[Rfam]
RNA: mir-1285 microRNA precursor family
Organism: Rhinopithecus bieti
RNA sequence: AUGGGGUUUCACUAUGUUGCCCAGGCUGGUCUCAAACUCCUGGGACCAGCCUGGCCAACAUGGUGAAACCUCAU
Numbered sequence: 001a002u003g004g005g006g007u008u009u010c011a012c013u014a015u016g017u018u019g020c021c022c023a024g025g026c027u028g029g030u031c032u033c034a035a036a037c038u039c040c041u042g043g044g045a046c047c048a049g050c051c052u053g054g055c056c057a058a059c060a061u062g063g064u065g066a067a068a069c070c071u072c073a074u
Base pairs, nucleotide, nucleotide: 007068008067009066010065011064012063013062014061019056021054022053023052024051025050032043033042034041